[Rfam]
RNA sequence: UUCUUUCUGUAGCUAUAAUAUUUUUAUAAAAAUAUUGAAUAUUGUAUCACAGAAUGGAUU
Numbered sequence: 001u002u003c004u005u006u007c008u009g010u011a012g013c014u015a016u017a018a019u020a021u022u023u024u025u026a027u028a029a030a031a032a033u034a035u036u037g038a039a040u041a042u043u044g045u046a047u048c049a050c051a052g053a054a055u056g057g058a059u060u
Base pairs, nucleotide, nucleotide: 001058002057003056006053007052008051009050010049012048014046015045016044017043018042019041020040021039023038024037026035027034
Rfam assigns this 60-nucleotide RNA from Monodelphis domestica to the family "mir-7360 microRNA precursor family". A search with the family's covariance model found it, with a score of 59 bits. Lineage of the source: Eukaryota > Deuterostomia > Gnathostomata > Euteleostomi > Monodelphis.